[Rfam]
RNA sequence: CUUGAGGGAGCCGAGCCACAGCGGUUCCCCGCCGGCCCGGUCCUGACCGUACGUCGCGAGCAGCGCCUGCGCCUC
Numbered sequence: 001c002u003u004g005a006g007g008g009a010g011c012c013g014a015g016c017c018a019c020a021g022c023g024g025u026u027c028c029c030c031g032c033c034g035g036c037c038c039g040g041u042c043c044u045g046a047c048c049g050u051a052c053g054u055c056g057c058g059a060g061c062a063g064c065g066c067c068u069g070c071g072c073c074u075c
Stems, first nucleotide, its partner, number of pairs: 014026004033069001038065002043060002047056001049054001
Rfam assigns this 75-nucleotide RNA from Actinoplanes regularis to the family "ASpks TB sRNA".
It is annotated as an antisense RNA.
It scores 74 bits against the family's covariance model.